[Rfam]
A member of the RNA family "Glycine riboswitch aptamer" from Acuticoccus sediminis, 92 nucleotides long. NCBI's taxonomy places the organism under Bacteria, Pseudomonadati, Pseudomonadota, Hyphomicrobiales, Acuticoccus.
RNA sequence: CAUUCUGGAAAGCGACGGCGGCAGCCGUCCACCGAAGGAGUAGCCGUUCCCGCUUGCGGGGCGGGAAAUCUCUCAGGUGCCAUGACAGAAGG
Numbered sequence: 001c002a003u004u005c006u007g008g009a010a011a012g013c014g015a016c017g018g019c020g021g022c023a024g025c026c027g028u029c030c031a032c033c034g035a036a037g038g039a040g041u042a043g044c045c046g047u048u049c050c051c052g053c054u055u056g057c058g059g060g061g062c063g064g065g066a067a068a069u070c071u072c073u074c075a076g077g078u079g080c081c082a083u084g085a086c087a088g089a090a091g092g
Stems, first nucleotide, its partner, number of pairs: 001092001003090005014029004031078003034074002038072003044065002
From the family's description: This family represents the bacterial glycine riboswitch. The match comes from Rfam's covariance-model search (47 bits).